[Rfam]
RNA sequence: ACACGUGAGAGGAGGUGGUCCAGCGUUGAGUAGCAACCGGACUCGUGAGGUGGCUGUCCGCUAGCACCUGAGGACGAAGAUCCGACCGCGUGGAAUGCCGGUAGGUGCCGGCGAGUCCCAGGCAGUCACCAGUGGUCCCCGGGCCCGAGCCCGUCCAGCUCGGCUUGCGCAUCCGAUGAUGCGGCCCGGGGAUCACCCAU
Numbered sequence: 001a002c003a004c005g006u007g008a009g010a011g012g013a014g015g016u017g018g019u020c021c022a023g024c025g026u027u028g029a030g031u032a033g034c035a036a037c038c039g040g041a042c043u044c045g046u047g048a049g050g051u052g053g054c055u056g057u058c059c060g061c062u063a064g065c066a067c068c069u070g071a072g073g074a075c076g077a078a079g080a081u082c083c084g085a086c087c088g089c090g091u092g093g094a095a096u097g098c099c100g101g102u103a104g105g106u107g108c109c110g111g112c113g114a115g116u117c118c119c120a121g122g123c124a125g126u127c128a129c130c131a132g133u134g135g136u137c138c139c140c141g142g143g144c145c146c147g148a149g150c151c152c153g154u155c156c157a158g159c160u161c162g163g164c165u166u167g168c169g170c171a172u173c174c175g176a177u178g179a180u181g182c183g184g185c186c187c188g189g190g191g192a193u194c195a196c197c198c199a200u
Stems, first nucleotide, its partner, number of pairs: 014058006059113004064108002067105004072099002133195013146162005
Rfam assigns this 200-nucleotide sequence from Pseudonocardia hydrocarbonoxydans to the family "Actinobacteria sRNA Ms_IGR-5". Lineage of the source: Bacteria > Bacillati > Actinomycetota > Actinomycetes > Pseudonocardia. For this family Rfam cites "Identification of small RNAs in Mycobacterium smegmatis using heterologous Hfq" (Li et al., RNA, 2013).